Shown here is a 35-nucleotide RNA sequence from Carlito syrichta, a member of the family "Iron response element I". It scores 36 bits against the family's covariance model. Lineage of the source: Eukaryota > Metazoa > Bilateria > Amniota > Carlito. On this family, see Huang et al., Insect Biochem Mol Biol 1999: "An atypical iron-responsive element (IRE) within crayfish ferritin mRNA and an iron regulatory protein 1 (IRP1)-like protein from crayfish hepatopancreas". Rfam links the family to the GO term response to iron ion.
[Rfam]
RNA sequence: CUGUCUCUUGUUUCAACAGUGCUUGGAUGGAAGAG
Numbered sequence: 001c002u003g004u005c006u007c008u009u010g011u012u013u014c015a016a017c018a019g020u021g022c023u024u025g026g027a028u029g030g031a032a033g034a035g
Base pairs, nucleotide, nucleotide: 001035002034004032006031007030008029010028012027013026014025015024016023017021